[Rfam]
RNA sequence: ACCUAUACGCGGACCCCUCCUCCUCCCUGGGUUCGCGUCGCGCGAUGCAGGCUCUCCUCCUCCCUGCCUGCGUCGCAACCCAUACGCGGCCCCUCCUCCUCCCUGGGCCAGCGUUGAUG
Numbered sequence: 001a002c003c004u005a006u007a008c009g010c011g012g013a014c015c016c017c018u019c020c021u022c023c024u025c026c027c028u029g030g031g032u033u034c035g036c037g038u039c040g041c042g043c044g045a046u047g048c049a050g051g052c053u054c055u056c057c058u059c060c061u062c063c064c065u066g067c068c069u070g071c072g073u074c075g076c077a078a079c080c081c082a083u084a085c086g087c088g089g090c091c092c093c094u095c096c097u098c099c100u101c102c103c104u105g106g107g108c109c110a111g112c113g114u115u116g117a118u119g
Stems, first nucleotide, its partner, number of pairs: 007038003011034006043075010084114004088109005
Source information:
Shown here is a 119-nucleotide RNA from Paracoccus aurantiacus, a member of the family "Alphaproteobacterial ar14". The organism belongs to Paracoccus, within Bacteria. Rfam classes the family as a small RNA. From the family's description: Smr14C2 was renamed NfeR1 (Nodule Formation Efficiency RNA) highly expressed in salt stress and during the symbiotic interaction on legume roots.